[Rfam]
Rfam assigns this 160-nucleotide RNA sequence from Monodelphis domestica to the family "ODC internal ribosome entry site (IRES)".
On this family, see Pyronnet et al., Cell Mol Life Sci 2005: "Alternative splicing facilitates internal ribosome entry on the ornithine decarboxylase mRNA".
Its family is annotated with ribosome binding in the Gene Ontology.
The family has 13 seed sequences and 437 matches in Rfam 15.1.
RNA sequence: AGUGCAAUAGCUACACCAAAGGCACAAUCAAAGCCUUGUAUUUAACAGGAUUUUCUCUUUCUGGAAAAGCAUCUUCGGUGUAAAGCUGGAAAUAGCUUGCCUUUAAAUUCCAUCUCUUAAUUUUCCCUUUUGUUGCACUUUAGAGGAACAUCAAGAAACC
Numbered sequence: 001a002g003u004g005c006a007a008u009a010g011c012u013a014c015a016c017c018a019a020a021g022g023c024a025c026a027a028u029c030a031a032a033g034c035c036u037u038g039u040a041u042u043u044a045a046c047a048g049g050a051u052u053u054u055c056u057c058u059u060u061c062u063g064g065a066a067a068a069g070c071a072u073c074u075u076c077g078g079u080g081u082a083a084a085g086c087u088g089g090a091a092a093u094a095g096c097u098u099g100c101c102u103u104u105a106a107a108u109u110c111c112a113u114c115u116c117u118u119a120a121u122u123u124u125c126c127c128u129u130u131u132g133u134u135g136c137a138c139u140u141u142a143g144a145g146g147a148a149c150a151u152c153a154a155g156a157a158a159c160c
Stems, first nucleotide, its partner, number of pairs: 010086003015081002017077001019075004047062004095159001097158002101155003108148004